[Rfam]
RNA sequence: CCCAAGCCCGGGCUCUUUCCACUGAGCCACGCUGCUUCUCUGUCACUAAGUGAUCCAGAAUAAUUGACUGCGCAUGGCUCAGUGGAAAGAGCAUGGGCUUUGGA
Numbered sequence: 001c002c003c004a005a006g007c008c009c010g011g012g013c014u015c016u017u018u019c020c021a022c023u024g025a026g027c028c029a030c031g032c033u034g035c036u037u038c039u040c041u042g043u044c045a046c047u048a049a050g051u052g053a054u055c056c057a058g059a060a061u062a063a064u065u066g067a068c069u070g071c072g073c074a075u076g077g078c079u080c081a082g083u084g085g086a087a088a089g090a091g092c093a094u095g096g097g098c099u100u101u102g103g104a
Stems, first nucleotide, its partner, number of pairs: 002103002005099006012092017
Annotation
A member of the RNA family "mir-130 microRNA precursor family" from Ornithorhynchus anatinus, 104 nucleotides long. Rfam links the family to the GO terms miRNA-mediated post-transcriptional gene silencing and RISC complex. The organism belongs to Ornithorhynchus, within Eukaryota. Rfam 15.1 lists 2,580 matches to the family in 658 species.